This 108-nucleotide sequence from Plutella xylostella belongs to the Rfam family "mir-8517 microRNA precursor family".
NCBI's taxonomy places the organism under Eukaryota, Metazoa, Protostomia, Insecta, Plutella.
Gene Ontology terms of the family: miRNA-mediated post-transcriptional gene silencing and RISC complex.
Pairs were carried over by alignment from the consensus structure, which was predicted with RNAalifold.

[Rfam]
RNA sequence: UUACAGGACGCUUUAGCUAUUGAACUGUUCUGUCACUCUCUGACAGUGGACAAUUUGUUAUUUGACAGAGAGUGUCAAAACAGGGCAAUAGCUAAAGCGUCCAGUAAG
Numbered sequence: 001u002u003a004c005a006g007g008a009c010g011c012u013u014u015a016g017c018u019a020u021u022g023a024a025c026u027g028u029u030c031u032g033u034c035a036c037u038c039u040c041u042g043a044c045a046g047u048g049g050a051c052a053a054u055u056u057g058u059u060a061u062u063u064g065a066c067a068g069a070g071a072g073u074g075u076c077a078a079a080a081c082a083g084g085g086c087a088a089u090a091g092c093u094a095a096a097g098c099g100u101c102c103a104g105u106a107a108g
Stems, first nucleotide, its partner, number of pairs: 001107004006102001011097012025083004029069007049059004